[Rfam]
RNA sequence: UGUUGUGGAUGAUGAGAAUAUAAAUUAUCACACAGUUAUCCCUGUCUGAUACAUUCAGUGCUGAUUAUAUGUGAUCUGACACAAAC
Number, nucleotide and partner (000 for none) at each position: 001u000002g000003u084004u083005g082006u081007g080008g000009a000010u000011g000012a000013u000014g000015a000016g000017a000018a000019u000020a000021u000022a000023a000024a000025u000026u000027a000028u000029c000030a000031c000032a000033c000034a000035g000036u000037u000038a000039u000040c000041c000042c000043u000044g000045u000046c000047u000048g000049a000050u000051a000052c000053a000054u000055u000056c000057a000058g000059u000060g000061c000062u000063g000064a000065u000066u000067a000068u000069a000070u000071g000072u000073g000074a000075u000076c000077u000078g000079a000080c007081a006082c005083a004084a003085a000086c000
RNA: Small nucleolar RNA R38